[Rfam]
RNA sequence: CUUUAACAAUCCGGAACAAGCUGAAAAUUGAAACGACAUGUCGUCUCAUUUCUCCGUAAUAAGAAAUGAAUCACGAUAUGUUCGAGUCUCUCAAAUGCUUACAGCCGCAGUGGAAACACUUGUGG
Numbered sequence: 001c002u003u004u005a006a007c008a009a010u011c012c013g014g015a016a017c018a019a020g021c022u023g024a025a026a027a028u029u030g031a032a033a034c035g036a037c038a039u040g041u042c043g044u045c046u047c048a049u050u051u052c053u054c055c056g057u058a059a060u061a062a063g064a065a066a067u068g069a070a071u072c073a074c075g076a077u078a079u080g081u082u083c084g085a086g087u088c089u090c091u092c093a094a095a096u097g098c099u100u101a102c103a104g105c106c107g108c109a110g111u112g113g114a115a116a117c118a119c120u121u122g123u124g125g
Stems, first nucleotide, its partner, number of pairs: 020102001023100002027096003034084003038081004106124003109120004

Salmonella enterica Typhi npcRNA 44: a 125-nucleotide RNA sequence from Winslowiella iniecta. The family has 34 seed sequences and 474 matches in Rfam 15.1. The literature on the family includes a 2010 paper in Nucleic Acids Res by Chinni et al., "Experimental identification and characterization of 97 novel npcRNA candidates in Salmonella enterica serovar Typhi".